The family of this 131-nucleotide RNA from Planococcaceae bacterium Storch 2/2-2 is "PyrR binding site".

RNA sequence: AGCACCUUUAAGAGCAGUCCAGAGAGGCUGGGAAGGUAAACGGAAACACCGAAGUAGCGCGACAGGACUGUCGUCUAUUUCAGUGCGCAAAAUUACACUCCUAUCGACUCUCGUCGGUAGGAGUUUUUUAU
Dot-bracket structure: ...((((((.....(((((......))))).)))))).............(((((((.((((((....))))))))))))).............(.((((((((((((....)))))))))))).).....

The family's consensus secondary structure is taken from published work. By type it is a cis-regulatory element.